[Rfam]
RNA sequence: AGCGGAGGGAAGCUUACUGUAGAGGUCACGAGCAGAGUGUUCAUCACUCCACCAAUCACCUCGGGGAAGGUCUGAGACAAGAGCCAAUCGCUGUCCUCACAGGACAUCAUCUGAUCAGAUGAGCGAGCGCACAGAAACAUGGGUCACAGCGCGGUGUUCUCGCACGAGACGUUGAUGAUUGCGCAAAUUUCAGCACAUCAACUGAUGCGAUCCGCGCAGACUUGGAAACGCUCGCGGCUGGCGCUAUGAGUACAAUGUGUGAGCUAGCAGAAGGUGCUAGAACCCAAUUCAGACUACUCUCCCUCCGCU
Numbered sequence: 001a002g003c004g005g006a007g008g009g010a011a012g013c014u015u016a017c018u019g020u021a022g023a024g025g026u027c028a029c030g031a032g033c034a035g036a037g038u039g040u041u042c043a044u045c046a047c048u049c050c051a052c053c054a055a056u057c058a059c060c061u062c063g064g065g066g067a068a069g070g071u072c073u074g075a076g077a078c079a080a081g082a083g084c085c086a087a088u089c090g091c092u093g094u095c096c097u098c099a100c101a102g103g104a105c106a107u108c109a110u111c112u113g114a115u116c117a118g119a120u121g122a123g124c125g126a127g128c129g130c131a132c133a134g135a136a137a138c139a140u141g142g143g144u145c146a147c148a149g150c151g152c153g154g155u156g157u158u159c160u161c162g163c164a165c166g167a168g169a170c171g172u173u174g175a176u177g178a179u180u181g182c183g184c185a186a187a188u189u190u191c192a193g194c195a196c197a198u199c200a201a202c203u204g205a206u207g208c209g210a211u212c213c214g215c216g217c218a219g220a221c222u223u224g225g226a227a228a229c230g231c232u233c234g235c236g237g238c239u240g241g242c243g244c245u246a247u248g249a250g251u252a253c254a255a256u257g258u259g260u261g262a263g264c265u266a267g268c269a270g271a272a273g274g275u276g277c278u279a280g281a282a283c284c285c286a287a288u289u290c291a292g293a294c295u296a297c298u299c300u301c302c303c304u305c306c307g308c309u
Stems, first nucleotide, its partner, number of pairs: 001309004008302003013263005022062004035049005072292005082239004092106005107122006123235007143221003264280006
Dot-bracket structure: ((((...(((..(((((....((((.........(((((.....))))).........)))).........[[[[[.....((((......(((((.....)))))((((((....))))))(((((((.............(((.........................................................................))).......)))))))))))...................)))))((((((.....)))))).......]]]]].......)))...))))
Description: Rfam assigns this 309-nucleotide sequence from Triplophysa tibetana to the family "Nuclear RNase P". Rfam 15.1 lists 3,848 matches to the family in 1,862 species. Taxonomically the source falls in Triplophysa (Eukaryota, Bilateria, Chordata, Actinopteri). It is annotated as a ribozyme.